The record is an 89-nucleotide RNA from Cycloclasticus sp. symbiont of Bathymodiolus heckerae, which matches "Glycine riboswitch aptamer" in Rfam. It scores 67 bits against the family's covariance model. Pairs were carried over by alignment from the consensus structure.
[Rfam]
RNA sequence: UUACCCCUUUUGGGAGAGCUCGGUUUUAUAUCGACGCCGAAGGCGCAAUCCGUCCGGAAUCGCUCAGGCAAAUGGACCAUAAGGGAGGU
Numbered sequence: 001u002u003a004c005c006c007c008u009u010u011u012g013g014g015a016g017a018g019c020u021c022g023g024u025u026u027u028a029u030a031u032c033g034a035c036g037c038c039g040a041a042g043g044c045g046c047a048a049u050c051c052g053u054c055c056g057g058a059a060u061c062g063c064u065c066a067g068g069c070a071a072a073u074g075g076a077c078c079a080u081a082a083g084g085g086a087g088g089u
Base pairs, nucleotide, nucleotide: 006084007083008082009081011079012078013077020034021033022032023031036069037068038067039065040064043063044062045061049057050056